[Rfam]
RNA sequence: GCCGGGUUGAGUGGCGUCAACUUGUAACAGGAAGCUUCUGCCUGGGUAGUGGGUCAUUGCGGGUUGUAGUAUGCUGUGUGUUGUCACUAUCACCAGGAUGUGGAUGGCGCGUCCGUUUCAAACCAGGAGUAGACAUUGGGGCGUUGGCGGAAGCCAGCGCAUCGAGGUCACUAAGGAAGGGUGUACUGCCCCAGGCUGGCUAACAGAGCAGGGAAAAGCCCUCGCUCUUGGUAGUGGAAGGAUCUCGUGCCAGAAUUCUGAGGUGUCACCACACAGCUAUCAGCUACAAUUCAAAGGGCCUGCAA
Numbered sequence: 001g002c003c004g005g006g007u008u009g010a011g012u013g014g015c016g017u018c019a020a021c022u023u024g025u026a027a028c029a030g031g032a033a034g035c036u037u038c039u040g041c042c043u044g045g046g047u048a049g050u051g052g053g054u055c056a057u058u059g060c061g062g063g064u065u066g067u068a069g070u071a072u073g074c075u076g077u078g079u080g081u082u083g084u085c086a087c088u089a090u091c092a093c094c095a096g097g098a099u100g101u102g103g104a105u106g107g108c109g110c111g112u113c114c115g116u117u118u119c120a121a122a123c124c125a126g127g128a129g130u131a132g133a134c135a136u137u138g139g140g141g142c143g144u145u146g147g148c149g150g151a152a153g154c155c156a157g158c159g160c161a162u163c164g165a166g167g168u169c170a171c172u173a174a175g176g177a178a179g180g181g182u183g184u185a186c187u188g189c190c191c192c193a194g195g196c197u198g199g200c201u202a203a204c205a206g207a208g209c210a211g212g213g214a215a216a217a218g219c220c221c222u223c224g225c226u227c228u229u230g231g232u233a234g235u236g237g238a239a240g241g242a243u244c245u246c247g248u249g250c251c252a253g254a255a256u257u258c259u260g261a262g263g264u265g266u267c268a269c270c271a272c273a274c275a276g277c278u279a280u281c282a283g284c285u286a287c288a289a290u291u292c293a294a295a296g297g298g299c300c301u302g303c304a305a
Base pairs, nucleotide, nucleotide: 001047002046003045004023005022006021007020008019009018010017028044029043030042049303050302051301052300053299054298055297057295058294061292062291063290064289065288066287067283069281073277074276075275080272081271083269084268086266087265089264090263091262093260095259096258097257098256099255101253105252106251107250108249109248110247111246113241114240116239117238118237119236120235122232123231124230125229126228127227128226129225130224132169133168134167136165137164138163139162141160142159143158144157145156146155147154148153171175178222179221180220181219182218187215189213190212191211196206197205198204
Dot-bracket structure: ((((((((((......)))))))....(((...........)))))).(((((((.((..(((((((.(...(((....((.((.((.(((.(.(((((.(...(((((((.((.(((((.(((((((((.(((.((((.((((((((....)))))))).)))).))).(...)..(((((....(.(((....(((.....)))....))).)..))))).)))))))))..)))))))....)))))))).)))))).))))).)).))..)))...).)...)))))).)).)))))))..